[Rfam]
RNA: Glycine riboswitch aptamer
Organism: Paenibacillus durus
RNA sequence: AUGAUGGCACAGGGAGAGACUGUCCUGCAAGGACGGCGCCGAAGGAGUAAGCCUUAACCCAAGGUGAAUCUCUCAGGCAAAAGGACCUCUGCCGGACG
Numbered sequence: 001a002u003g004a005u006g007g008c009a010c011a012g013g014g015a016g017a018g019a020c021u022g023u024c025c026u027g028c029a030a031g032g033a034c035g036g037c038g039c040c041g042a043a044g045g046a047g048u049a050a051g052c053c054u055u056a057a058c059c060c061a062a063g064g065u066g067a068a069u070c071u072c073u074c075a076g077g078c079a080a081a082a083g084g085a086c087c088u089c090u091g092c093c094g095g096a097c098g
Stems, first nucleotide, its partner, number of pairs: 006093004011088003020036004038078003041074002045072003051065004